A member of the RNA family "MIR6152 microRNA precursor family" from Nicotiana attenuata, 129 nucleotides long. Its family is annotated with miRNA-mediated post-transcriptional gene silencing and RISC complex in the Gene Ontology. The match comes from Rfam's covariance-model search (63 bits).

RNA sequence: UAGACAGAUUAUUGUAUUCGAUUGUAUUCACGAUAUGUAUUUGUGAAUACAGUAACGUAAACAGUGCAGUUCAUGGUCUAUUAAGUUGUUUUUAAACGAAAAGUGAAUCAAUUAACAUAAUAGACUCCU
Dot-bracket structure: ..((....(((((((.((.((.((.((((((..(.((.(.................................................).)....).)....)))))))).)))).)))))))..))..